This 63-nucleotide sequence belongs to the Rfam family "L20-Deltaproteobacteria ribosomal protein leader". Rfam's curators put it in the seed alignment. The base pairs follow the family's consensus structure, which is taken from published work. A reference for the family is Eckert and Weinberg (2020), "Discovery of 20 novel ribosomal leader candidates in bacteria and archaea", BMC Microbiol.
[Rfam]
RNA sequence: GUCCGUGAACCGUGAGGAAGCGCCUCCCCUUGCGGAUCCGGCAAAAUUCACCUGUAAAAGGAG
Numbered sequence: 001g002u003c004c005g006u007g008a009a010c011c012g013u014g015a016g017g018a019a020g021c022g023c024c025u026c027c028c029c030u031u032g033c034g035g036a037u038c039c040g041g042c043a044a045a046a047u048u049c050a051c052c053u054g055u056a057a058a059a060g061g062a063g
Stems, first nucleotide, its partner, number of pairs: 003041003007038002010035008